[Rfam]
RNA sequence: CGCCGUUCUCAGGGCGGGGUGAAAUUCCCCACCGGCGGUAUGCGGGCAUGACCCGUAAGCCCGCGAGCGGCUUGAACCACAGGUUCAAGUGUCAGCAGAUCUGGUGAGAGGCCAGAGCCGACGGUUAAAGUCCGGAUGAAAGAGAACGUAC
Numbered sequence: 001c002g003c004c005g006u007u008c009u010c011a012g013g014g015c016g017g018g019g020u021g022a023a024a025u026u027c028c029c030c031a032c033c034g035g036c037g038g039u040a041u042g043c044g045g046g047c048a049u050g051a052c053c054c055g056u057a058a059g060c061c062c063g064c065g066a067g068c069g070g071c072u073u074g075a076a077c078c079a080c081a082g083g084u085u086c087a088a089g090u091g092u093c094a095g096c097a098g099a100u101c102u103g104g105u106g107a108g109a110g111g112c113c114a115g116a117g118c119c120g121a122c123g124g125u126u127a128a129a130g131u132c133c134g135g136a137u138g139a140a141a142g143a144g145a146a147c148g149u150a151c
Stems, first nucleotide, its partner, number of pairs: 004148007017029003031131002033120002035064004059118002067096002100116005122134003
Notes:
The family of this 151-nucleotide RNA from Tritonibacter litoralis is "FMN riboswitch aptamer (RFN element)". The RFN element is a highly conserved domain that is found frequently in the 5'-untranslated regions of prokaryotic mRNAs that encode for flavin mononucleotide (FMN) biosynthesis and transport proteins. This element is a metabolite-dependent riboswitch that directly binds FMN in the absence of proteins. The base pairs follow the family's consensus structure, which is taken from published work. NCBI's taxonomy places the organism under Bacteria, Pseudomonadota, Alphaproteobacteria, Rhodobacterales, Tritonibacter.